The record is a 74-nucleotide RNA sequence from Thrips palmi, which matches "mir-252 microRNA precursor family" in Rfam. A reference for the family is Li et al. (2009), "Direct sequencing and expression analysis of a large number of miRNAs in Aedes aegypti and a multi-species survey of novel mosquito miRNAs", BMC Genomics. Pairs were carried over by alignment from the consensus structure, which was predicted with RNAalifold. Gene Ontology terms of the family: RISC complex and miRNA-mediated post-transcriptional gene silencing. Rfam 15.1 lists 422 matches to the family in 306 species. Lineage of the source: Eukaryota > Arthropoda > Insecta > Terebrantia > Thrips.
[Rfam]
RNA sequence: CCCCGUUCCUAAGUACUAGUGCCGCAGGAGUGGGUAUUUGAAAUCCCCUGCCGCUCGAGUGCUUACCAAUGGGG
Numbered sequence: 001c002c003c004c005g006u007u008c009c010u011a012a013g014u015a016c017u018a019g020u021g022c023c024g025c026a027g028g029a030g031u032g033g034g035u036a037u038u039u040g041a042a043a044u045c046c047c048c049u050g051c052c053g054c055u056c057g058a059g060u061g062c063u064u065a066c067c068a069a070u071g072g073g074g
Stems, first nucleotide, its partner, number of pairs: 001074007010065008019056001024051005030045001